[Rfam]
RNA sequence: UCGUUAUCACGAAAGGCAGAGGGGAUAGACCCGGUGAAGCCUUAGCAACCCUUUACCACACUUAAAGAAGGUGCUACAUUCUACUCAAUGAAACCAUUUUCAAAGGGGCAGAUAACCC
Numbered sequence: 001u002c003g004u005u006a007u008c009a010c011g012a013a014a015g016g017c018a019g020a021g022g023g024g025a026u027a028g029a030c031c032c033g034g035u036g037a038a039g040c041c042u043u044a045g046c047a048a049c050c051c052u053u054u055a056c057c058a059c060a061c062u063u064a065a066a067g068a069a070g071g072u073g074c075u076a077c078a079u080u081c082u083a084c085u086c087a088a089u090g091a092a093a094c095c096a097u098u099u100u101c102a103a104a105g106g107g108g109c110a111g112a113u114a115a116c117c118c
Base pairs, nucleotide, nucleotide: 003116004115005114006113007112008111013043014042015041016040017039021032022031023030026083027082028081029080044075045074046073047072049071050070051067052066053065054064079110084107085106086105089102090101091100092099093098
Shown here is a 118-nucleotide RNA from Formosa agariphila, a member of the family "SAM riboswitch aptamer (S box leader)". Gene Ontology term of the family: regulation of gene expression. The organism belongs to Formosa agariphila, within Bacteria. It scores 62 bits against the family's covariance model.